Rfam assigns this 562-nucleotide part of an RNA from Paludibacter jiangxiensis to the family "Bacterial small subunit ribosomal RNA". The family has 99 seed sequences and 42,628 matches in Rfam 15.1. The literature on the family includes a 2001 paper in Science by Yusupov et al., "Crystal structure of the ribosome at 5.5 A resolution". Gene Ontology terms of the family: ribosome and structural constituent of ribosome. A search with the family's covariance model found it, with a score of 1492 bits. Clan: SSU clan. The organism belongs to Paludibacter, within Bacteria.
RNA sequence: ACAAUGAAGAGUUUGAUCCUGGCUCAGGAUGAACGCUAGCGACAGGCCUAACACAUGCAAGUCGAGGGGCAGCACGAGGUAGCAAUACUUUGGUGGCGACCGGCGCACGGGUGCGUAACGCGUAUGCAACCUACCUGUAAUUGGGGGAUAGCCUUCCGAAAGGAAGAUUAACACCGCAUAAGACAAUAGAUCCGCAUGGAUUAGUUGUUAAAUAUUUAUAGAUUACGGAUGGGCAUGCGUCUGAUUAGAUAGUUGGUAGGGUAACGGCCUACCAAGUCUGCGAUCAGUAGGGGUUCUGAGAGGAAGGUCCCCCACACCGGAACUGAGACACGGUCCGGACUCCUACGGGAGGCAGCAGUGAGGAAUAUUGGUCAAUGGGCGAGAGCCUGAACCAGCCAAGUCGCGUGAAGGAAGAAUGUCCUAUGGAUUGUAAACUUCUUUUGUAGGGGGAUAAAAAAGAGUACGUGUACUCUCUUGUAGGUACCCUACGAAUAAGGAUCGGCUAACUCCGUGCCAGCAGCCGCGGUAAUACGGAGGAUCCAAGCGUUAUCCGGAUUUAUUG
Numbered sequence: 001a002c003a004a005u006g007a008a009g010a011g012u013u014u015g016a017u018c019c020u021g022g023c024u025c026a027g028g029a030u031g032a033a034c035g036c037u038a039g040c041g042a043c044a045g046g047c048c049u050a051a052c053a054c055a056u057g058c059a060a061g062u063c064g065a066g067g068g069g070c071a072g073c074a075c076g077a078g079g080u081a082g083c084a085a086u087a088c089u090u091u092g093g094u095g096g097c098g099a100c101c102g103g104c105g106c107a108c109g110g111g112u113g114c115g116u117a118a119c120g121c122g123u124a125u126g127c128a129a130c131c132u133a134c135c136u137g138u139a140a141u142u143g144g145g146g147g148a149u150a151g152c153c154u155u156c157c158g159a160a161a162g163g164a165a166g167a168u169u170a171a172c173a174c175c176g177c178a179u180a181a182g183a184c185a186a187u188a189g190a191u192c193c194g195c196a197u198g199g200a201u202u203a204g205u206u207g208u209u210a211a212a213u214a215u216u217u218a219u220a221g222a223u224u225a226c227g228g229a230u231g232g233g234c235a236u237g238c239g240u241c242u243g244a245u246u247a248g249a250u251a252g253u254u255g256g257u258a259g260g261g262u263a264a265c266g267g268c269c270u271a272c273c274a275a276g277u278c279u280g281c282g283a284u285c286a287g288u289a290g291g292g293g294u295u296c297u298g299a300g301a302g303g304a305a306g307g308u309c310c311c312c313c314a315c316a317c318c319g320g321a322a323c324u325g326a327g328a329c330a331c332g333g334u335c336c337g338g339a340c341u342c343c344u345a346c347g348g349g350a351g352g353c354a355g356c357a358g359u360g361a362g363g364a365a366u367a368u369u370g371g372u373c374a375a376u377g378g379g380c381g382a383g384a385g386c387c388u389g390a391a392c393c394a395g396c397c398a399a400g401u402c403g404c405g406u407g408a409a410g411g412a413a414g415a416a417u418g419u420c421c422u423a424u425g426g427a428u429u430g431u432a433a434a435c436u437u438c439u440u441u442u443g444u445a446g447g448g449g450g451a452u453a454a455a456a457a458a459g460a461g462u463a464c465g466u467g468u469a470c471u472c473u474c475u476u477g478u479a480g481g482u483a484c485c486c487u488a489c490g491a492a493u494a495a496g497g498a499u500c501g502g503c504u505a506a507c508u509c510c511g512u513g514c515c516a517g518c519a520g521c522c523g524c525g526g527u528a529a530u531a532c533g534g535a536g537g538a539u540c541c542a543a544g545c546g547u548u549a550u551c552c553g554g555a556u557u558u559a560u561u562g
Stems, first nucleotide, its partner, number of pairs: 009025005027552004032548006039404005045397002047362001052360003056357003061104003066101002069097002075092007111315003120240008130232002135228007143177001145175002151168001153166005183208005189202001191200003213220002241287003248278003253275008290312004294305004317338005340351004368394001370393003376389005407438004418428003443489006452479001458473003496541005507536005517524002